Source information
This 364-nucleotide RNA sequence from a Dehalococcoidia bacterium belongs to the Rfam family "Bacterial RNase P class A". It scores 278 bits against the family's covariance model.
RNA sequence: UCAGGAGGCCGGGUGGCCGCUGCCGCGUUGCGGCAGAGGAAAGUCCGGGCUCCACCGGGCAGGGUGCCGGGUAACACCCGGGCGUCGCGAGACGACGGAAAGUGCCACAGAAACAUACCGCCCCUCGGGGUAAGGGUGCAAUGGUGCGGUAAGAGCGCACCGUCGUGCUGGUGACAGCACGGUUCGGGCAAACCCCACCUGGAGCAAGGCCGAAUAGGAGGGCCCCCGCCACGGCGGGGAAGGGCGCCCGGCCCUCGACCCUCGGGUUGGCCGCGUGACCCGGCCGGUAACGGACGGGCUAGAUGGAUGGCCACCGGCCCACCCUGGUGGGCUACAGAACCCGGCUUACAGGCCUGCUGAACCC
Numbered sequence: 001u002c003a004g005g006a007g008g009c010c011g012g013g014u015g016g017c018c019g020c021u022g023c024c025g026c027g028u029u030g031c032g033g034c035a036g037a038g039g040a041a042a043g044u045c046c047g048g049g050c051u052c053c054a055c056c057g058g059g060c061a062g063g064g065u066g067c068c069g070g071g072u073a074a075c076a077c078c079c080g081g082g083c084g085u086c087g088c089g090a091g092a093c094g095a096c097g098g099a100a101a102g103u104g105c106c107a108c109a110g111a112a113a114c115a116u117a118c119c120g121c122c123c124c125u126c127g128g129g130g131u132a133a134g135g136g137u138g139c140a141a142u143g144g145u146g147c148g149g150u151a152a153g154a155g156c157g158c159a160c161c162g163u164c165g166u167g168c169u170g171g172u173g174a175c176a177g178c179a180c181g182g183u184u185c186g187g188g189c190a191a192a193c194c195c196c197a198c199c200u201g202g203a204g205c206a207a208g209g210c211c212g213a214a215u216a217g218g219a220g221g222g223c224c225c226c227c228g229c230c231a232c233g234g235c236g237g238g239g240a241a242g243g244g245c246g247c248c249c250g251g252c253c254c255u256c257g258a259c260c261c262u263c264g265g266g267u268u269g270g271c272c273g274c275g276u277g278a279c280c281c282g283g284c285c286g287g288u289a290a291c292g293g294a295c296g297g298g299c300u301a302g303a304u305g306g307a308u309g310g311c312c313a314c315c316g317g318c319c320c321a322c323c324c325u326g327g328u329g330g331g332c333u334a335c336a337g338a339a340c341c342c343g344g345c346u347u348a349c350a351g352g353c354c355u356g357c358u359g360a361a362c363c364c
Base pairs, nucleotide, nucleotide: 001360002359003358004357006355007354008353009352010351011349012315013314014313015312016311017310018309020036021035022034023033024032025031026030041347042346043345045344046343047342048341049340050204051203052202053201058249059248062200063199064198065197066196067081068080069079070078071077082096083094084093085092086091097195098194102193103192104189105188106187118135119134120131121130122129123128143161144160145159146158147157148156162184163182164181165180166179167178168177169176170175208272209271210270211269218263219262220261221260222259241255242254243253244252245251279298280297281296282295284293285292286291